[Rfam]
RNA sequence: AUGAUAAAUUGACAAUGAGAGAGAGCACGCUCGUUGCCAUUCAUGCAAGUGCGUGGAUAUAUACAGGCGUGCUCUCUGUUAUUGUCAUAUGAUC
Numbered sequence: 001a002u003g004a005u006a007a008a009u010u011g012a013c014a015a016u017g018a019g020a021g022a023g024a025g026c027a028c029g030c031u032c033g034u035u036g037c038c039a040u041u042c043a044u045g046c047a048a049g050u051g052c053g054u055g056g057a058u059a060u061a062u063a064c065a066g067g068c069g070u071g072c073u074c075u076c077u078g079u080u081a082u083u084g085u086c087a088u089a090u091g092a093u094c
Stems, first nucleotide, its partner, number of pairs: 010087005016081002020077002023074001025072007033064002
Dot-bracket structure: .........(((((.((..((.(.(((((((.((............................)).))))))).).))..)).))))).......
RNA: MIR535 microRNA precursor family
Organism: Durio zibethinus